[Rfam]
RNA: Bacterial RNase P class A
RNA sequence: CUCGAUGGUCGUGCAGUUGCGUGAAAUAACUUUUCGAGAUUUUACGAGGAAAGUCCGGACUCUACAGAGAUAUGGUGCUGGUUAACGACCAGCGGAAGAGUAAGCUUUUGCUUUAACUCCAUUUGGAUUUAAAGCGAAAUCUAAUAAUCUUUUAGGGAAAGUGCCACAGAAAAUAUACCGCCAAUUUAUUGGUAAGGGUGAAAUGGUGCGGUAAGAGCGCACCGGUAGAUUGGCGACAAGCUACGCAUGGUAAACCCCACCAAGAGCAAGAUCAAAUAGGUGCUACAGGGCUUGCAUGCCCCUAGAUAUCUCUGACUAGUAGUAGCACGGGUAGAUCGCUUGAGGUAAAUGGUAACAUUUAUCCUAGAUAAAUAACUGCAGUAAAUAUUUUAAAUAUUUAUACAGAAUCCGGCUUAUAGACCAUCAAAUCCU
Dot-bracket structure: .(.(((((((((((((((.((((((((...........))))))))....[[[.[[[[[((((.........((((((((((.....)))))(((((((................................................)))))).)((...(((((............(((((((....)))))..)).......((((((.......))))))(((((.(((....))).)))).)..)))..)))))))))))))...((((......((((((.....................(((.........))).)))))).....))))......((((((((....))))))))..........)))))))...........................]]]]]]]].).))))))).).....
Numbered sequence: 001c002u003c004g005a006u007g008g009u010c011g012u013g014c015a016g017u018u019g020c021g022u023g024a025a026a027u028a029a030c031u032u033u034u035c036g037a038g039a040u041u042u043u044a045c046g047a048g049g050a051a052a053g054u055c056c057g058g059a060c061u062c063u064a065c066a067g068a069g070a071u072a073u074g075g076u077g078c079u080g081g082u083u084a085a086c087g088a089c090c091a092g093c094g095g096a097a098g099a100g101u102a103a104g105c106u107u108u109u110g111c112u113u114u115a116a117c118u119c120c121a122u123u124u125g126g127a128u129u130u131a132a133a134g135c136g137a138a139a140u141c142u143a144a145u146a147a148u149c150u151u152u153u154a155g156g157g158a159a160a161g162u163g164c165c166a167c168a169g170a171a172a173a174u175a176u177a178c179c180g181c182c183a184a185u186u187u188a189u190u191g192g193u194a195a196g197g198g199u200g201a202a203a204u205g206g207u208g209c210g211g212u213a214a215g216a217g218c219g220c221a222c223c224g225g226u227a228g229a230u231u232g233g234c235g236a237c238a239a240g241c242u243a244c245g246c247a248u249g250g251u252a253a254a255c256c257c258c259a260c261c262a263a264g265a266g267c268a269a270g271a272u273c274a275a276a277u278a279g280g281u282g283c284u285a286c287a288g289g290g291c292u293u294g295c296a297u298g299c300c301c302c303u304a305g306a307u308a309u310c311u312c313u314g315a316c317u318a319g320u321a322g323u324a325g326c327a328c329g330g331g332u333a334g335a336u337c338g339c340u341u342g343a344g345g346u347a348a349a350u351g352g353u354a355a356c357a358u359u360u361a362u363c364c365u366a367g368a369u370a371a372a373u374a375a376c377u378g379c380a381g382u383a384a385a386u387a388u389u390u391u392a393a394a395u396a397u398u399u400a401u402a403c404a405g406a407a408u409c410c411g412g413c414u415u416a417u418a419g420a421c422c423a424u425c426a427a428a429u430c431c432u
Stems, first nucleotide, its partner, number of pairs: 002427001004425007011417001012380007020046008051415003055412005060266004073262005078092005093155001094153006156257002161255002163251003178197002180193005205223006224246001225244004230239003270337004280328006307321003344363008